[Rfam]
RNA: ylbH leader
RNA sequence: AUAAAAAAAGCCUGCAGAACAUUAGUCUGCAGGCCCUUUUUAGUUCUUGAUAGGAACUAAAAAGGCAAAGGGAGAGGAGAAACCGGAAAAAGCGCCUAUGGGGAAACGUAGGCUGAUUCCGUCU
Numbered sequence: 001a002u003a004a005a006a007a008a009a010g011c012c013u014g015c016a017g018a019a020c021a022u023u024a025g026u027c028u029g030c031a032g033g034c035c036c037u038u039u040u041u042a043g044u045u046c047u048u049g050a051u052a053g054g055a056a057c058u059a060a061a062a063a064g065g066c067a068a069a070g071g072g073a074g075a076g077g078a079g080a081a082a083c084c085g086g087a088a089a090a091a092g093c094g095c096c097u098a099u100g101g102g103g104a105a106a107c108g109u110a111g112g113c114u115g116a117u118u119c120c121g122u123c124u
Base pairs, nucleotide, nucleotide: 010034011033012032013031014030015029016028017027018026035072036071037070038069039068040060041059042058043057044056045055046054047053084121085120086119087118089117092114094113095112096111097110098109